[Rfam]
RNA sequence: UUACUGGUGAAAGUCCAGUCAAGGUAAUCGUCAAGGAGCCUUGUAGUUAAUCACCAUGCGUAGUAGAAAUACUGGGUAUGAAGCGUGAAGAUAAUGUAACUCGAAAGAGUGCUAACAAGAAUACAGGUCGUAAUAUAA
Numbered sequence: 001u002u003a004c005u006g007g008u009g010a011a012a013g014u015c016c017a018g019u020c021a022a023g024g025u026a027a028u029c030g031u032c033a034a035g036g037a038g039c040c041u042u043g044u045a046g047u048u049a050a051u052c053a054c055c056a057u058g059c060g061u062a063g064u065a066g067a068a069a070u071a072c073u074g075g076g077u078a079u080g081a082a083g084c085g086u087g088a089a090g091a092u093a094a095u096g097u098a099a100c101u102c103g104a105a106a107g108a109g110u111g112c113u114a115a116c117a118a119g120a121a122u123a124c125a126g127g128u129c130g131u132a133a134u135a136u137a138a
Stems, first nucleotide, its partner, number of pairs: 020043005051088004055080005064071002096112003101107001115131002
RNA: Group II catalytic intron D1-D4-4